Annotation: Clostridiales-3 RNA: a 223-nucleotide RNA sequence from Eubacterium sp. CAG:161. Taxonomically the source falls in Eubacterium (Bacteria, Clostridia, Eubacteriales, Eubacteriaceae). Rfam classes the family as a small RNA. Pairs were carried over by alignment from the consensus structure, which is taken from published work.

RNA sequence: ACGAGAACCGAAGGAUUGAGAAAAGAAGGCGGAGCAGGCAGGACAGAUUAAAUGUAGCGGAAGGUUAAUAAACCACAAAGGAGUGAGAGAAGCUCCUUAUCCUCGAAAUGGCAGCAGAGGAGAUAGUUUCUAUUUAGAAGCGUCGUGAACGCAAAAGCGGCUUGUUUGUAAUUCCCAGGUGUACGGGCGAUGAGGGCUUAGAGAUAAGCGAAGUACACAUACA
Numbered sequence: 001a002c003g004a005g006a007a008c009c010g011a012a013g014g015a016u017u018g019a020g021a022a023a024a025g026a027a028g029g030c031g032g033a034g035c036a037g038g039c040a041g042g043a044c045a046g047a048u049u050a051a052a053u054g055u056a057g058c059g060g061a062a063g064g065u066u067a068a069u070a071a072a073c074c075a076c077a078a079a080g081g082a083g084u085g086a087g088a089g090a091a092g093c094u095c096c097u098u099a100u101c102c103u104c105g106a107a108a109u110g111g112c113a114g115c116a117g118a119g120g121a122g123a124u125a126g127u128u129u130c131u132a133u134u135u136a137g138a139a140g141c142g143u144c145g146u147g148a149a150c151g152c153a154a155a156a157g158c159g160g161c162u163u164g165u166u167u168g169u170a171a172u173u174c175c176c177a178g179g180u181g182u183a184c185g186g187g188c189g190a191u192g193a194g195g196g197c198u199u200a201g202a203g204a205u206a207a208g209c210g211a212a213g214u215a216c217a218c219a220u221a222c223a
Stems, first nucleotide, its partner, number of pairs: 008029002016023002074147003078098007100121005122144003126141006150159003179218006196209005